Shown here is a 68-nucleotide RNA sequence from Drosophila ananassae, a member of the family "mir-2 microRNA precursor family".
The sequence is in the family's curated seed alignment.
On this family, see Lee and Ambros, Science 2001: "An extensive class of small RNAs in Caenorhabditis elegans".
Taxonomically the source falls in ananassae species complex (Eukaryota, Protostomia, Aparaglossata, Panorpida).
Pairs were carried over by alignment from the consensus structure, which was predicted with PFOLD.
[Rfam]
RNA sequence: CAGCGCGUCGAAAUGACUGUGACUUAUGCGUAUUUGAUGUCAUAUCACAGCCAUUUUGACGAGUUUGG
Numbered sequence: 001c002a003g004c005g006c007g008u009c010g011a012a013a014u015g016a017c018u019g020u021g022a023c024u025u026a027u028g029c030g031u032a033u034u035u036g037a038u039g040u041c042a043u044a045u046c047a048c049a050g051c052c053a054u055u056u057u058g059a060c061g062a063g064u065u066u067g068g
Stems, first nucleotide, its partner, number of pairs: 006061010017050006025044003